This 140-nucleotide sequence from Potexvirus bambusae belongs to the Rfam family "Bamboo mosaic potexvirus (BaMV) cis-regulatory element".

RNA sequence: AACGUUGCAUGAUCGUAAAACAUGCCCGGCUUACCGUGAGCCGCCUUUGAAAGAAAGGUUUACACGGACUCUGUUGCGUUACGCACGUACCUAACCCGUGCCAGCAGAAUAAAGACCUUUUGGUUUCUACAGUUUUUUCC
Numbered sequence: 001a002a003c004g005u006u007g008c009a010u011g012a013u014c015g016u017a018a019a020a021c022a023u024g025c026c027c028g029g030c031u032u033a034c035c036g037u038g039a040g041c042c043g044c045c046u047u048u049g050a051a052a053g054a055a056a057g058g059u060u061u062a063c064a065c066g067g068a069c070u071c072u073g074u075u076g077c078g079u080u081a082c083g084c085a086c087g088u089a090c091c092u093a094a095c096c097c098g099u100g101c102c103a104g105c106a107g108a109a110u111a112a113a114g115a116c117c118u119u120u121u122g123g124u125u126u127c128u129a130c131a132g133u134u135u136u137u138u139c140c
Base pairs, nucleotide, nucleotide: 007025008024009023010022011021027043028042029041030040031039032038044058045057046056047055048054066117067116070108071107072106073105074104075103076102083101084100085099086098087097
The organism belongs to Potexvirus bambusae, within Viruses. Rfam's curators write: This family represents a cloverleaf-like cis-regulatory element found in the 3' UTR of the bamboo mosaic potexvirus. This family is thought to play an important role in the initiation of minus-strand RNA synthesis and may also be involved in the regulation of viral replication. A reference for the family is Chen et al. (2003), "Functional analysis of the cloverleaf-like structure in the 3' untranslated region of bamboo mosaic potexvirus RNA revealed dual roles in viral RNA replication and long distance movement", Virology. The sequence is in the family's curated seed alignment.